Rfam assigns this 135-nucleotide sequence from Lachnospiraceae bacterium MD329 to the family "FMN riboswitch aptamer (RFN element)". Lineage of the source: Bacteria > Bacillati > Bacillota > Clostridia > Lachnospiraceae. The family's consensus secondary structure is taken from published work.

RNA sequence: GAUUAUCUUCGGGGUAUGUGAAAUUCAUAAUCGGCGGUGAGCGGUUAUACCGUAAGUCCGUGAGCCCGUUAUUCAGCGGGUUGAUUCGGUGCAAUUCCGAAACCGACGGUAAAGUCCGGAUGGGAGAAGGUAUUU
Numbered sequence: 001g002a003u004u005a006u007c008u009u010c011g012g013g014g015u016a017u018g019u020g021a022a023a024u025u026c027a028u029a030a031u032c033g034g035c036g037g038u039g040a041g042c043g044g045u046u047a048u049a050c051c052g053u054a055a056g057u058c059c060g061u062g063a064g065c066c067c068g069u070u071a072u073u074c075a076g077c078g079g080g081u082u083g084a085u086u087c088g089g090u091g092c093a094a095u096u097c098c099g100a101a102a103c104c105g106a107c108g109g110u111a112a113a114g115u116c117c118g119g120a121u122g123g124g125a126g127a128a129g130g131u132a133u134u135u
Base pairs, nucleotide, nucleotide: 004132005131006130007129008128009127010126016028017027018026030115031114032105033104034061035060036059037058056103057102064081065080066079085101086100087099088098089097107118108117109116